[Rfam]
RNA sequence: AGCAAAAUGAUGAGUUUUCUUCCUCCGAAUCUUGGUGUGGAAUCACAUCUAGUGUUGGUCUUCAAAGUUCUCUGAUUGCU
Numbered sequence: 001a002g003c004a005a006a007a008u009g010a011u012g013a014g015u016u017u018u019c020u021u022c023c024u025c026c027g028a029a030u031c032u033u034g035g036u037g038u039g040g041a042a043u044c045a046c047a048u049c050u051a052g053u054g055u056u057g058g059u060c061u062u063c064a065a066a067g068u069u070c071u072c073u074g075a076u077u078g079c080u
Stems, first nucleotide, its partner, number of pairs: 001080005
Rfam assigns this 80-nucleotide RNA sequence from Turnera subulata to the family "Small nucleolar RNA R160". By type it is a C/D-box small nucleolar RNA. Gene Ontology terms of the family: RNA processing and nucleolus. A reference for the family is Chen et al. (2003), "The high diversity of snoRNAs in plants: identification and comparative study of 120 snoRNA genes from Oryza sativa", Nucleic Acids Res. Rfam 15.1 lists 799 matches to the family in 221 species. It scores 66 bits against the family's covariance model.